[Rfam]
RNA sequence: AAUGAAUGCUAAAGACUGAAAGACAUGAGAAUUAAAAACUAUGUCUUGAAGAAAACAGUAAGGA
Number, nucleotide and partner (000 for none) at each position: 001a000002a000003u000004g000005a000006a000007u060008g059009c058010u057011a000012a000013a000014g000015a000016c051017u050018g000019a000020a047021a046022g045023a044024c043025a042026u041027g040028a000029g000030a000031a000032u000033u000034a000035a000036a000037a000038a000039c000040u027041a026042u025043g024044u023045c022046u021047u020048g000049a000050a017051g016052a000053a000054a000055a000056c000057a010058g009059u008060a007061a000062g000063g000064a000